[Rfam]
RNA sequence: UCCCUCACCAAAACAACAGAUCUGUGGCCAGCGGUCCCGUCGUGCACCUUCGGGUGUUCUGUUCGGUUGACUGCUGGUCAAUUCGACGACUAUGCAAAUCUUUAGACUUCACAGUGGAGUACGUGCGGUCGACAGAUCUCAGAAAGAGUCAGCUUCUCCCGUCUUGAGCUCUUCGUGAGCUCGGCGAGAGUUGUCUGAGGGCGCUAUAUUCCGAAUCGUUCCCGAGUCCGUUGGACGGUGAGGGUAGGGAAAAACCAUAGCUUGCCUACAUAU
Numbered sequence: 001u002c003c004c005u006c007a008c009c010a011a012a013a014c015a016a017c018a019g020a021u022c023u024g025u026g027g028c029c030a031g032c033g034g035u036c037c038c039g040u041c042g043u044g045c046a047c048c049u050u051c052g053g054g055u056g057u058u059c060u061g062u063u064c065g066g067u068u069g070a071c072u073g074c075u076g077g078u079c080a081a082u083u084c085g086a087c088g089a090c091u092a093u094g095c096a097a098a099u100c101u102u103u104a105g106a107c108u109u110c111a112c113a114g115u116g117g118a119g120u121a122c123g124u125g126c127g128g129u130c131g132a133c134a135g136a137u138c139u140c141a142g143a144a145a146g147a148g149u150c151a152g153c154u155u156c157u158c159c160c161g162u163c164u165u166g167a168g169c170u171c172u173u174c175g176u177g178a179g180c181u182c183g184g185c186g187a188g189a190g191u192u193g194u195c196u197g198a199g200g201g202c203g204c205u206a207u208a209u210u211c212c213g214a215a216u217c218g219u220u221c222c223c224g225a226g227u228c229c230g231u232u233g234g235a236c237g238g239u240g241a242g243g244g245u246a247g248g249g250a251a252a253a254a255c256c257a258u259a260g261c262u263u264g265c266c267u268a269c270a271u272a273u
Stems, first nucleotide, its partner, number of pairs: 018139008026079006033072004037066003041061002045056004087131005094120002098115002148195001150193001160186004166182006200266003203261005216250002219247002221244003226236004
RNA: A. fumigatus sRNA Afu_309
Organism: Hortaea werneckii